[Rfam]
RNA: MIR319 microRNA precursor family
Organism: Rosa chinensis
RNA sequence: CAGAGAUGGGAGUUCCUUGCAGCCCAAACCGGUGGUUAUAUAUAAGUCUGAGUUAUUCUGCCAUCUUUGUUUUGGACUGAAGGGAGCUCCCAAUUCUU
Numbered sequence: 001c002a003g004a005g006a007u008g009g010g011a012g013u014u015c016c017u018u019g020c021a022g023c024c025c026a027a028a029c030c031g032g033u034g035g036u037u038a039u040a041u042a043u044a045a046g047u048c049u050g051a052g053u054u055a056u057u058c059u060g061c062c063a064u065c066u067u068u069g070u071u072u073u074g075g076a077c078u079g080a081a082g083g084g085a086g087c088u089c090c091c092a093a094u095u096c097u098u
Stems, first nucleotide, its partner, number of pairs: 007092012021078002024075005